[Rfam]
RNA sequence: UAUCGGUCCCCUCGCAACACUCAGCUGUGAACCCGGUCAGGCCCGGAAGGGAGCAGCCGCAGCAGUGACAGUGUGUGCCGGGGUGUGGCUGGUGCGG
Numbered sequence: 001u002a003u004c005g006g007u008c009c010c011c012u013c014g015c016a017a018c019a020c021u022c023a024g025c026u027g028u029g030a031a032c033c034c035g036g037u038c039a040g041g042c043c044c045g046g047a048a049g050g051g052a053g054c055a056g057c058c059g060c061a062g063c064a065g066u067g068a069c070a071g072u073g074u075g076u077g078c079c080g081g082g083g084u085g086u087g088g089c090u091g092g093u094g095c096g097g
Base pairs, nucleotide, nucleotide: 004091005090006089007088008087010083011082012081013080014079015075017074018073019072020071021070024066025065026064027063028062034059035058036057037056042051043050044049
Rfam assigns this 97-nucleotide RNA from Thiolapillus brandeum to the family "Bacterial small signal recognition particle RNA". The signal recognition particle (SRP) is a universally conserved ribonucleoprotein involved in the co-translational targeting of proteins to membranes. It scores 76 bits against the family's covariance model.